[Rfam]
RNA sequence: UCACAAGUUCAAGGCCAUAACAGAAAUGCUUAUGGUGUGGCCAUGUCAGAUUCCAAUUAAUCUGUGAUUUCUGCU
Numbered sequence: 001u002c003a004c005a006a007g008u009u010c011a012a013g014g015c016c017a018u019a020a021c022a023g024a025a026a027u028g029c030u031u032a033u034g035g036u037g038u039g040g041c042c043a044u045g046u047c048a049g050a051u052u053c054c055a056a057u058u059a060a061u062c063u064g065u066g067a068u069u070u071c072u073g074c075u
Stems, first nucleotide, its partner, number of pairs: 013042004019075001021073005026038003047064006
The record is a 75-nucleotide RNA sequence from Crocodylus porosus, which matches "Mammalian CPEB3 ribozyme" in Rfam.
The mammalian CPEB3 ribozyme is a self cleaving RNA located in the second intron of the CPEB3 gene which belongs to a family of genes regulating messenger RNA polyadenylation. This ribozyme is highly conserved and found only in mammals.
A search with the family's covariance model found it, with a score of 41 bits.
The family's consensus secondary structure is taken from published work.